[Rfam]
RNA: small nucleolar RNA snoR135
RNA sequence: AUAGCAGGGACUGUGUGUAUCAGUAUUAAGCAGUGAUCAUAUGCUCUAUGCUGAAAGAAUUCCCUGCAAUAUUAAUUGGAGAAGAUGGGCAGUUGAGAUGUCAUCUAUUGGUAUCUCAACAAUCAUCUUUCCUACAUUU
Numbered sequence: 001a002u003a004g005c006a007g008g009g010a011c012u013g014u015g016u017g018u019a020u021c022a023g024u025a026u027u028a029a030g031c032a033g034u035g036a037u038c039a040u041a042u043g044c045u046c047u048a049u050g051c052u053g054a055a056a057g058a059a060u061u062c063c064c065u066g067c068a069a070u071a072u073u074a075a076u077u078g079g080a081g082a083a084g085a086u087g088g089g090c091a092g093u094u095g096a097g098a099u100g101u102c103a104u105c106u107a108u109u110g111g112u113a114u115c116u117c118a119a120c121a122a123u124c125a126u127c128u129u130u131c132c133u134a135c136a137u138u139u
Stems, first nucleotide, its partner, number of pairs: 004067007015046001017044004079132001081130008092120004